[Rfam]
RNA sequence: UAAGGGCUCUACCAGUAAGUUAAUAUUGUAGAAAAAUACCUGGUGCUAUAAUAUUAUCUUACUGGUAGAGCCCUUA
Numbered sequence: 001u002a003a004g005g006g007c008u009c010u011a012c013c014a015g016u017a018a019g020u021u022a023a024u025a026u027u028g029u030a031g032a033a034a035a036a037u038a039c040c041u042g043g044u045g046c047u048a049u050a051a052u053a054u055u056a057u058c059u060u061a062c063u064g065g066u067a068g069a070g071c072c073c074u075u076a
Stems, first nucleotide, its partner, number of pairs: 001076003005072003010069001011066008020056001022055008
Rfam assigns this 76-nucleotide sequence from Furnarius figulus to the family "mir-16 microRNA precursor family". Gene Ontology terms of the family: miRNA-mediated post-transcriptional gene silencing and RISC complex. A search with the family's covariance model found it, with a score of 40 bits. Pairs were carried over by alignment from the consensus structure, which was predicted with PFOLD.